The record is a 90-nucleotide RNA sequence from Candidatus Hydrogenisulfobacillus filiaventi, which matches "Selenocysteine transfer RNA" in Rfam. Gene Ontology term of the family: triplet codon-amino acid adaptor activity.

RNA sequence: GGCGGUCUUGGGGCUGGUGCCCUCCAUCGGCUGCAAACCGAUCGGCGGCCGGCGCUGCCGGCCGGUUGGGUUCGAUUCCCAACGGCCGCC
Numbered sequence: 001g002g003c004g005g006u007c008u009u010g011g012g013g014c015u016g017g018u019g020c021c022c023u024c025c026a027u028c029g030g031c032u033g034c035a036a037a038c039c040g041a042u043c044g045g046c047g048g049c050c051g052g053c054g055c056u057g058c059c060g061g062c063c064g065g066u067u068g069g070g071u072u073c074g075a076u077u078c079c080c081a082a083c084g085g086c087c088g089c090c
Stems, first nucleotide, its partner, number of pairs: 001090007010023005025044001026042005046064005067081004
The family is grouped with related families in Rfam's "tRNA clan".